[Rfam]
RNA sequence: CUGUUCCUCUUUCCUAUGCAUAUAUCUCUUUGAAAUGUUCAGUUAAAGAGGCAUAGAGCAUGGGAAAAUGGGGCGG
Numbered sequence: 001c002u003g004u005u006c007c008u009c010u011u012u013c014c015u016a017u018g019c020a021u022a023u024a025u026c027u028c029u030u031u032g033a034a035a036u037g038u039u040c041a042g043u044u045a046a047a048g049a050g051g052c053a054u055a056g057a058g059c060a061u062g063g064g065a066a067a068a069u070g071g072g073g074c075g076g
Stems, first nucleotide, its partner, number of pairs: 010067010021055003025051008